[Rfam]
RNA sequence: CUUAUAGCUUGGCAAUCUCAUGUCAAAUAAGGAAAAGAAGAGGAACCCAAGGUAUGUUUCUCAUCUACCUUCUUUGACAUGGGACUGCCUAAGCUAA
Numbered sequence: 001c002u003u004a005u006a007g008c009u010u011g012g013c014a015a016u017c018u019c020a021u022g023u024c025a026a027a028u029a030a031g032g033a034a035a036a037g038a039a040g041a042g043g044a045a046c047c048c049a050a051g052g053u054a055u056g057u058u059u060c061u062c063a064u065c066u067a068c069c070u071u072c073u074u075u076g077a078c079a080u081g082g083g084a085c086u087g088c089c090u091a092a093g094c095u096a097a
Base pairs, nucleotide, nucleotide: 006095007094008093009092010091011089012088013087014086016084017083018082019081020080021079022078023077024076025075026074027073029071030070031069032068034066036064040062041061042060043059044058045057046056